[Rfam]
The record is a 129-nucleotide sequence from Oreochromis niloticus, which matches "Small nucleolar RNA SNORA71" in Rfam. The members of this family belong to the H/ACA class of snoRNAs which bind a number of proteins (including dyskerin, Gar1p and Nop10p) to form snoRNP complexes.

RNA sequence: CCCUGUAUCGAAAGGUGAUCAUGGCGUCUAUGUUGCCUGGUCAUUAAAAAUUACAGGAAGAUAAACCUUUGAGCCUUUCCCGUGUUUGAAGGACUAUCAAUUCCUAUCAGACCCUGGUGCUCUAAGACA
Numbered sequence: 001c002c003c004u005g006u007a008u009c010g011a012a013a014g015g016u017g018a019u020c021a022u023g024g025c026g027u028c029u030a031u032g033u034u035g036c037c038u039g040g041u042c043a044u045u046a047a048a049a050a051u052u053a054c055a056g057g058a059a060g061a062u063a064a065a066c067c068u069u070u071g072a073g074c075c076u077u078u079c080c081c082g083u084g085u086u087u088g089a090a091g092g093a094c095u096a097u098c099a100a101u102u103c104c105u106a107u108c109a110g111a112c113c114c115u116g117g118u119g120c121u122c123u124a125a126g127a128c129a
Stems, first nucleotide, its partner, number of pairs: 002057006008050001014045008023037004066126001068125002071122004084112005090105004
Overview:
Rfam links the family to the GO terms RNA processing and nucleolus. Pairs were carried over by alignment from the consensus structure, which was predicted with PFOLD. The organism belongs to Oreochromis, within Eukaryota.